[Rfam]
Nucleotides: 103
Stems, first nucleotide, its partner, number of pairs: 009042001011040002015035004020030003075096007082088001
Number, partner (000 for none) and nucleotide at each position: 001000c002000a003000a004000g005000g006000u007000u008000g009042g010000u011040g012039g013000c014000g015035c016034a017033c018032u019000u020030g021029g022028a023000c024000a025000c026000a027000a028022u029021c030020c031000g032018a033017g034016u035015g036000g037000g038000c039012u040011u041000u042009u043000u044000u045000g046000c047000g048000u049000g050000c051000a052000u053000a054000a055000u056000c057000a058000u059000a060000a061000c062000c063000u064000a065000a066000u067000u068000u069000g070000a071000u072000u073000a074000a075096a076095g077094c078093c079092c080091a081090c082088u083000c084000a085000a086000a087000c088082g089000a090081g091080u092079g093078g094077g095076c096075u097000u098000u099000u100000u101000u102000g103000u
Shown here is a 103-nucleotide sequence from Vibrio thalassae, a member of the family "Tryptophan operon leader". Its family is annotated with tryptophan biosynthetic process and transcriptional attenuation by ribosome in the Gene Ontology. The family's consensus secondary structure is taken from published work. The literature on the family includes a 1982 paper in Annu Rev Genet by Kolter and Yanofsky, "Attenuation in amino acid biosynthetic operons". About the family: At least 6 amino acid operons are known to be regulated by attenuation.